[Rfam]
RNA sequence: UAUACGGUGGCAGUGUGGUUAGCUGGUUGUGUCUGAUAUUCACGACCACUAUCCAUACUCCCUUCGUGUG
Numbered sequence: 001u002a003u004a005c006g007g008u009g010g011c012a013g014u015g016u017g018g019u020u021a022g023c024u025g026g027u028u029g030u031g032u033c034u035g036a037u038a039u040u041c042a043c044g045a046c047c048a049c050u051a052u053c054c055a056u057a058c059u060c061c062c063u064u065c066g067u068g069u070g
Stems, first nucleotide, its partner, number of pairs: 002069005009062002012059007020051003024048008